Shown here is a 133-nucleotide sequence from Cavia porcellus, a member of the family "Small nucleolar RNA SNORA1". Taxonomically the source falls in Cavia (Eukaryota, Chordata, Sarcopterygii, Rodentia). Rfam's curators write: ACA1 is a member of the H/ACA class of snoRNA that guide the sites of modification of uridines to pseudouridines. Rfam classes the family as an H/ACA-box small nucleolar RNA. Rfam 15.1 lists 1,282 matches to the family in 515 species.
[Rfam]
RNA sequence: AGCUUCAUUCUGGAUUAGAAUGGGCACUGUUGAUUGGUGUCAAAAAUUGGUCCAUGUGGCUGAAAUUGAGACACAGGUCAUUCUUUCAUCACAAUAAAUGUUUGCAGUGGUGACAGUGAGACCUGUAACAUUU
Numbered sequence: 001a002g003c004u005u006c007a008u009u010c011u012g013g014a015u016u017a018g019a020a021u022g023g024g025c026a027c028u029g030u031u032g033a034u035u036g037g038u039g040u041c042a043a044a045a046a047u048u049g050g051u052c053c054a055u056g057u058g059g060c061u062g063a064a065a066u067u068g069a070g071a072c073a074c075a076g077g078u079c080a081u082u083c084u085u086u087c088a089u090c091a092c093a094a095u096a097a098a099u100g101u102u103u104g105c106a107g108u109g110g111u112g113a114c115a116g117u118g119a120g121a122c123c124u125g126u127a128a129c130a131u132u133u
Stems, first nucleotide, its partner, number of pairs: 002060003006056003021043001023041005073126005087112006